A member of the RNA family "TPP riboswitch aptamer (THI element)" from Treponema succinifaciens, 110 nucleotides long. Rfam links the family to the GO term thiamine pyrophosphate binding.

RNA sequence: AGCUAAUGCACGGGGAGCUUGCGCAAAGCUUGCUGAGAGUAGGAUGUGUUCCUUGACCCGCAACCUGAUUUGGAUAAUGCCAACGUAGGGACUUGUAAAAACAAACCUCU
Dot-bracket structure: ......((((((((.(((..(.......)..)).......((((.....)))))..))))...((((..((((......))))..))))....)))).............
Numbered sequence: 001a002g003c004u005a006a007u008g009c010a011c012g013g014g015g016a017g018c019u020u021g022c023g024c025a026a027a028g029c030u031u032g033c034u035g036a037g038a039g040u041a042g043g044a045u046g047u048g049u050u051c052c053u054u055g056a057c058c059c060g061c062a063a064c065c066u067g068a069u070u071u072g073g074a075u076a077a078u079g080c081c082a083a084c085g086u087a088g089g090g091a092c093u094u095g096u097a098a099a100a101a102c103a104a105a106c107c108u109c110u
Stems, first nucleotide, its partner, number of pairs: 007097004011060004016054001017033002021029001041053004064089004070083004